[Rfam]
RNA sequence: AAUUGACCAGAGGGAGGAAGAUUAGUCUUGCUCGGAGUCUUGAUGUUAUGUCUAACGACGAUUCCAGGACACCAAGCGUGGCAAAACGAGGGGGAGUUUUAGGUGGUAGGCUAGCAACGAGGUUGCUAGAAUCCACCAUGCCUUCGUGUACGGUCAUGAAAGGUAUCUUUAGAAGAUUUCUCCCCCUC
Numbered sequence: 001a002a003u004u005g006a007c008c009a010g011a012g013g014g015a016g017g018a019a020g021a022u023u024a025g026u027c028u029u030g031c032u033c034g035g036a037g038u039c040u041u042g043a044u045g046u047u048a049u050g051u052c053u054a055a056c057g058a059c060g061a062u063u064c065c066a067g068g069a070c071a072c073c074a075a076g077c078g079u080g081g082c083a084a085a086a087c088g089a090g091g092g093g094g095a096g097u098u099u100u101a102g103g104u105g106g107u108a109g110g111c112u113a114g115c116a117a118c119g120a121g122g123u124u125g126c127u128a129g130a131a132u133c134c135a136c137c138a139u140g141c142c143u144u145c146g147u148g149u150a151c152g153g154u155c156a157u158g159a160a161a162g163g164u165a166u167c168u169u170u171a172g173a174a175g176a177u178u179u180c181u182c183c184c185c186c187u188c
Stems, first nucleotide, its partner, number of pairs: 037070005090188004094182003102137005111129008139165006
RNA: R2 RNA element